A member of the RNA family "Group II catalytic intron D1-D4-6" from Noviherbaspirillum sedimenti, 237 nucleotides long. Rfam links the family to the GO term Group II intron splicing. The base pairs follow the family's consensus structure. Taxonomically the source falls in Noviherbaspirillum (Bacteria, Pseudomonadota, Burkholderiales, Oxalobacteraceae). Rfam 15.1 lists 1,617 matches to the family in 661 species.
[Rfam]
RNA sequence: AAAUGGCUGCCGCGGCAAAGCCUAGCCAGCAGUCGCGUACCGAGUCUUGCGUGGUGUCCGGUAACGGCCACUGCGAAGCGUAGACAGGGAGGUUGCAGGCCGGAACAUCAGUGAACGGAAAAAUAGCCCCGAAAUCACACUGGUCGAAGUAGCCGACCCUAUCUCUCAAAGGGGAAGGCGGAAUUCCAGCAUGCGCCACGGCGAGUGUGCUGGAGUGCUUCCGGGGUUCGUACCGCC
Numbered sequence: 001a002a003a004u005g006g007c008u009g010c011c012g013c014g015g016c017a018a019a020g021c022c023u024a025g026c027c028a029g030c031a032g033u034c035g036c037g038u039a040c041c042g043a044g045u046c047u048u049g050c051g052u053g054g055u056g057u058c059c060g061g062u063a064a065c066g067g068c069c070a071c072u073g074c075g076a077a078g079c080g081u082a083g084a085c086a087g088g089g090a091g092g093u094u095g096c097a098g099g100c101c102g103g104a105a106c107a108u109c110a111g112u113g114a115a116c117g118g119a120a121a122a123a124u125a126g127c128c129c130c131g132a133a134a135u136c137a138c139a140c141u142g143g144u145c146g147a148a149g150u151a152g153c154c155g156a157c158c159c160u161a162u163c164u165c166u167c168a169a170a171g172g173g174g175a176a177g178g179c180g181g182a183a184u185u186c187c188a189g190c191a192u193g194c195g196c197c198a199c200g201g202c203g204a205g206u207g208u209g210c211u212g213g214a215g216u217g218c219u220u221c222c223g224g225g226g227u228u229c230g231u232a233c234c235g236c237c
Base pairs, nucleotide, nucleotide: 012036013035014034015033016032020030021029023204025202026201038090040088041087044085045084046083047082048080049079050075051074052073053072054071055070056069058067059066060065123231126227127226128225129224130223131222146221147220148219149218150217151216152179153178154177157173158172159171160170184215185214186213187212188211189210190209191208192207193206194205